About this RNA:
A member of the RNA family "Mammalian CPEB3 ribozyme" from Alligator sinensis, 80 nucleotides long. About the family: The mammalian CPEB3 ribozyme is a self cleaving RNA located in the second intron of the CPEB3 gene which belongs to a family of genes regulating messenger RNA polyadenylation.
RNA sequence: GUUGAUAGUCCAGAAGUCACAAGUUUGAGAAGUGUUCAUGGCAUGACCUGCCAGAUUCCAAUGAAUCUGCAAAUUUUGCU
Numbered sequence: 001g002u003u004g005a006u007a008g009u010c011c012a013g014a015a016g017u018c019a020c021a022a023g024u025u026u027g028a029g030a031a032g033u034g035u036u037c038a039u040g041g042c043a044u045g046a047c048c049u050g051c052c053a054g055a056u057u058c059c060a061a062u063g064a065a066u067c068u069g070c071a072a073a074u075u076u077u078g079c080u
Base pairs, nucleotide, nucleotide: 013048016047017046018045021080028077029076030075031074032044033043034042052069053068054067055066056065057064058063
Dot-bracket structure: ............[..[[[..(......(((((((.......)))]]]]...(((((((....)))))))....))))..)

Lineage of the source: Eukaryota > Craniata > Tetrapoda > Archosauria > Alligator.